[Rfam]
RNA sequence: GCGUUAUCACGAAAGCGGGAGGGAAUAGACCCUACGAACGCUUAGCAACCCCUCAACCUCGAGGAAGGUGCUACAUUCUAUUCUGAUUUUUUCAGAAAAAGAUAACUU
Numbered sequence: 001g002c003g004u005u006a007u008c009a010c011g012a013a014a015g016c017g018g019g020a021g022g023g024a025a026u027a028g029a030c031c032c033u034a035c036g037a038a039c040g041c042u043u044a045g046c047a048a049c050c051c052c053u054c055a056a057c058c059u060c061g062a063g064g065a066a067g068g069u070g071c072u073a074c075a076u077u078c079u080a081u082u083c084u085g086a087u088u089u090u091u092u093c094a095g096a097a098a099a100a101g102a103u104a105a106c107u108u
Stems, first nucleotide, its partner, number of pairs: 001108001003106006013043005021032003026080004044072004049068002051064004076100001081097006
Shown here is a 108-nucleotide RNA from Flavobacterium fontis, a member of the family "SAM riboswitch aptamer (S box leader)". Pairs were carried over by alignment from the consensus structure, which is taken from published work. It scores 80 bits against the family's covariance model.